[Rfam]
RNA sequence: UCAAACAGCAAACUACUCUCCUACUUUCAUUCCUUCGAACAAUCCAAGUUCAUACCAAUCCCUCUGCAACCAUGACUCCCUGCAACUGCAACUCUUGCUGCUCCGGCGAAUGCAACUCUUGCAACUGCUCCCAGUGCAAGGUAUGCACCCACAUCUCU
Numbered sequence: 001u002c003a004a005a006c007a008g009c010a011a012a013c014u015a016c017u018c019u020c021c022u023a024c025u026u027u028c029a030u031u032c033c034u035u036c037g038a039a040c041a042a043u044c045c046a047a048g049u050u051c052a053u054a055c056c057a058a059u060c061c062c063u064c065u066g067c068a069a070c071c072a073u074g075a076c077u078c079c080c081u082g083c084a085a086c087u088g089c090a091a092c093u094c095u096u097g098c099u100g101c102u103c104c105g106g107c108g109a110a111u112g113c114a115a116c117u118c119u120u121g122c123a124a125c126u127g128c129u130c131c132c133a134g135u136g137c138a139a140g141g142u143a144u145g146c147a148c149c150c151a152c153a154u155c156u157c158u
Stems, first nucleotide, its partner, number of pairs: 081108003088101003112137003121128002

The family of this 158-nucleotide RNA from Aspergillus bombycis is "A. fumigatus sRNA Afu_254". For this family Rfam cites "Small ncRNA transcriptome analysis from Aspergillus fumigatus suggests a novel mechanism for regulation of protein synthesis" (Jochl et al., Nucleic Acids Res, 2008). Rfam classes the family as a small RNA. It scores 70 bits against the family's covariance model. The source organism's lineage runs through Eukaryota, Opisthokonta, Fungi, Dikarya and Aspergillus.